RNA sequence: UUCUGUCCCGCGCAUCCCUUUGUUCCAAUAUUCAAACCAGUAGAAAGAUUAUUGAGCAAUGCGCAUGUGCGGGACAGAU
Numbered sequence: 001u002u003c004u005g006u007c008c009c010g011c012g013c014a015u016c017c018c019u020u021u022g023u024u025c026c027a028a029u030a031u032u033c034a035a036a037c038c039a040g041u042a043g044a045a046a047g048a049u050u051a052u053u054g055a056g057c058a059a060u061g062c063g064c065a066u067g068u069g070c071g072g073g074a075c076a077g078a079u
Stems, first nucleotide, its partner, number of pairs: 002078010013067003017063001018061001020059006027053004032048002
RNA: mir-233 microRNA precursor family